[Rfam]
RNA sequence: GUCGGUUAUGGAGAUAUGGCACCGAAGACCUACGCCGGGAUGUUCGUGGGGGCUUUGUGCGCCCUCGCGGGAGUCUUGACGAUUGCACUUCCGGUUCCGGUGAUCGUUUCCAAU
Numbered sequence: 001g002u003c004g005g006u007u008a009u010g011g012a013g014a015u016a017u018g019g020c021a022c023c024g025a026a027g028a029c030c031u032a033c034g035c036c037g038g039g040a041u042g043u044u045c046g047u048g049g050g051g052g053c054u055u056u057g058u059g060c061g062c063c064c065u066c067g068c069g070g071g072a073g074u075c076u077u078g079a080c081g082a083u084u085g086c087a088c089u090u091c092c093g094g095u096u097c098c099g100g101u102g103a104u105c106g107u108u109u110c111c112a113a114u
Base pairs, nucleotide, nucleotide: 001114002113004111005110008107009106010105011104014101015100018097019096021095022094037077038076039075040074049063050062
Potassium channel RNA editing signal: a 114-nucleotide sequence from Tenebrio molitor.
The match comes from Rfam's covariance-model search (89 bits).
It is annotated as a cis-regulatory element.